[Rfam]
RNA sequence: GAGACCUUUAAAGACAGUCCCGAGAGGCUGAGAAGGAGUAUACAGACCGUGUAGGUCAUGAUUAUAGGCAACGUAUGUCUAAAAUCAGUAAACUAUCCUCUCACCCAAUCGGGCGGGAGGAUUUUUAAA
Numbered sequence: 001g002a003g004a005c006c007u008u009u010a011a012a013g014a015c016a017g018u019c020c021c022g023a024g025a026g027g028c029u030g031a032g033a034a035g036g037a038g039u040a041u042a043c044a045g046a047c048c049g050u051g052u053a054g055g056u057c058a059u060g061a062u063u064a065u066a067g068g069c070a071a072c073g074u075a076u077g078u079c080u081a082a083a084a085u086c087a088g089u090a091a092a093c094u095a096u097c098c099u100c101u102c103a104c105c106c107a108a109u110c111g112g113g114c115g116g117g118a119g120g121a122u123u124u125u126u127a128a129a
Stems, first nucleotide, its partner, number of pairs: 005036005015030005056090001059087005065081005095122008104113003
This 129-nucleotide RNA from Salibacterium salarium belongs to the Rfam family "PyrR binding site". By type it is a cis-regulatory element. The match comes from Rfam's covariance-model search (60 bits). This family represents the PyrR binding site and terminator structure. The family's consensus secondary structure is taken from published work.